The record is an 89-nucleotide RNA from Nocardioides panaciterrulae, which matches "ZMP/ZTP riboswitch aptamer (pfl RNA motif)" in Rfam. Lineage of the source: Bacteria > Bacillati > Actinomycetota > Nocardioidaceae > Nocardioides.

Nucleotides: 089
Base pairs, nucleotide, nucleotide: 006048007047009045010044011043012042015039016038017077018076019075020074024035025034026033027032066084067083068082069081070080
Number, partner (000 for none) and nucleotide at each position: 001000c002000u003000g004000g005000a006048g007047g008000c009045a010044c011043a012042c013000g014000a015039c016038u017077g018076g019075c020074g021000c022000g023000g024035g025034u026033g027032g028000u029000u030000c031000a032027c033026c034025a035024c036000c037000g038016g039015g040000g041000a042012g043011u044010g045009u046000c047007c048006c049000c050000a051000g052000c053000a054000g055000g056000g057000g058000a059000g060000g061000a062000g063000a064000g065000c066084g067083c068082a069081u070080c071000g072000a073000c074020c075019g076018c077017c078000u079000g080070g081069g082068u083067g084066c085000c086000c087000u088000c089000a